[Rfam]
RNA sequence: GUUGUGGCAGACUCUAAUUCGUUUGGUGCAGGUCGGGAACUACUUCACCAGCGGUGGCGAUUGAUUCUGAUUGAUUCGGGGGCGAAUCGGGUCCCGCCUUGCAUCAACUGAAUCGGAGACCGCCGUGAAC
Number, nucleotide and partner (000 for none) at each position: 001g000002u000003u000004g000005u000006g000007g000008c000009a000010g000011a000012c000013u117014c116015u000016a000017a113018u112019u111020c110021g000022u000023u107024u106025g105026g104027u103028g102029c101030a100031g099032g098033u000034c096035g095036g094037g093038a092039a000040c090041u089042a000043c000044u000045u000046c000047a000048c000049c000050a000051g000052c000053g000054g000055u000056g000057g000058c000059g000060a000061u000062u000063g000064a000065u000066u000067c000068u000069g000070a000071u000072u000073g000074a000075u000076u000077c000078g000079g000080g000081g000082g000083c000084g000085a000086a000087u000088c000089g041090g040091g000092u038093c037094c036095c035096g034097c000098c032099u031100u030101g029102c028103a027104u026105c025106a024107a023108c000109u000110g020111a019112a018113u017114c000115g000116g014117a013118g000119a000120c000121c000122g000123c000124c000125g000126u000127g000128a000129a000130c000
The record is a 130-nucleotide RNA sequence from Camellia sinensis, which matches "MIR168 microRNA precursor family" in Rfam. Gene Ontology terms of the family: miRNA-mediated post-transcriptional gene silencing and RISC complex. A reference for the family is Reinhart et al. (2002), "MicroRNAs in plants", Genes Dev. Taxonomically the source falls in Camellia sinensis (Eukaryota, Streptophytina, Magnoliopsida, Pentapetalae). A search with the family's covariance model found it, with a score of 103 bits.